[Rfam]
RNA: SAH (S-adenosyl-L-homocysteine) riboswitch aptamer
Organism: Betaproteobacteria bacterium SCN2
RNA sequence: UUUUCCGAGGAGCGUUGCAGCCUGCCGAAUCCGGCAGGCCAGGCUCGGAAGGAUGGCGGCACCGCCAUCCGGUCACAACGGCGCUCACGUCAC
Numbered sequence: 001u002u003u004u005c006c007g008a009g010g011a012g013c014g015u016u017g018c019a020g021c022c023u024g025c026c027g028a029a030u031c032c033g034g035c036a037g038g039c040c041a042g043g044c045u046c047g048g049a050a051g052g053a054u055g056g057c058g059g060c061a062c063c064g065c066c067a068u069c070c071g072g073u074c075a076c077a078a079c080g081g082c083g084c085u086c087a088c089g090u091c092a093c
Base pairs, nucleotide, nucleotide: 002051003050004049005048006047007046008045021038022037023036024035025034026033